This 73-nucleotide RNA from Medicago truncatula belongs to the Rfam family "MIR2629 microRNA precursor family".

RNA sequence: GGUUUUCAUUUUCUUCGGUAGUUAACUGCAGCCGGGUUCUAGAAAACUUCGGCAGUUAACUGCCGAGGGACAU
Numbered sequence: 001g002g003u004u005u006u007c008a009u010u011u012u013c014u015u016c017g018g019u020a021g022u023u024a025a026c027u028g029c030a031g032c033c034g035g036g037u038u039c040u041a042g043a044a045a046a047c048u049u050c051g052g053c054a055g056u057u058a059a060c061u062g063c064c065g066a067g068g069g070a071c072a073u
Base pairs, nucleotide, nucleotide: 012069013068015066016065017064018063019062020061021060022059023058024057025056026055027054028053029052
Source information
Its family is annotated with miRNA-mediated post-transcriptional gene silencing and RISC complex in the Gene Ontology. Pairs were carried over by alignment from the consensus structure, which was predicted with RNAalifold.